[Rfam]
RNA sequence: UUAAUAUCGUCAAUGGCCCCUCAUAUAAUUUUGGGAAUAUGGCCCAAAAGUUUCUACCCAAUAACCGUAAAUUAUUGGACUAUGAGGGAAAGGAUCUUAUUG
Numbered sequence: 001u002u003a004a005u006a007u008c009g010u011c012a013a014u015g016g017c018c019c020c021u022c023a024u025a026u027a028a029u030u031u032u033g034g035g036a037a038u039a040u041g042g043c044c045c046a047a048a049a050g051u052u053u054c055u056a057c058c059c060a061a062u063a064a065c066c067g068u069a070a071a072u073u074a075u076u077g078g079a080c081u082a083u084g085a086g087g088g089a090a091a092g093g094a095u096c097u098u099a100u101u102g
Base pairs, nucleotide, nucleotide: 018088019087020086021085022084023083024082025081029049030048031047032046033045034044035043058078059077060076061075062074063073064072